[Rfam]
RNA sequence: ACUUUAGAGUGAAAAAACACAGUUCGGUUGGUAGUCCGGACGCAAUAAUUAUUUAAUUAUUGUCAGUAACCUUCCCCCCUGGGAUGUCCAUCACUCAUGUAAUAAAC
Numbered sequence: 001a002c003u004u005u006a007g008a009g010u011g012a013a014a015a016a017a018c019a020c021a022g023u024u025c026g027g028u029u030g031g032u033a034g035u036c037c038g039g040a041c042g043c044a045a046u047a048a049u050u051a052u053u054u055a056a057u058u059a060u061u062g063u064c065a066g067u068a069a070c071c072u073u074c075c076c077c078c079c080u081g082g083g084a085u086g087u088c089c090a091u092c093a094c095u096c097a098u099g100u101a102a103u104a105a106a107c
Stems, first nucleotide, its partner, number of pairs: 005099002007096005022041006042063009073084001075083003